[Rfam]
RNA sequence: UGUCAUCGCUGAGUUAGAGAUCGGCGAAUGAUGUAUUAUCAACCCUUUUAGUAUAAGGAAUGUUUAUGUCUCUAAGUACAGAAAAAAAAGCAGCUAUUGUUGCUGAAUUUGGUCGUGAUGCG
Dot-bracket structure: ......((((((........))))))....................(((.......(((...........))))))..............................................